[Rfam]
RNA sequence: GGGGACCUUCGGGGCCCUACAACCAACGCGCUUUCAUCUGAUGGAUGCGUGCCAAGCAAACGGAAGACAGAGA
Numbered sequence: 001g002g003g004g005a006c007c008u009u010c011g012g013g014g015c016c017c018u019a020c021a022a023c024c025a026a027c028g029c030g031c032u033u034u035c036a037u038c039u040g041a042u043g044g045a046u047g048c049g050u051g052c053c054a055a056g057c058a059a060a061c062g063g064a065a066g067a068c069a070g071a072g073a
Base pairs, nucleotide, nucleotide: 001018002017003016004015006014007013008012027051028050029049030048031047036046037045038044039043
Dot-bracket structure: ((((.(((...)))))))........(((((....((((...)))))))))......................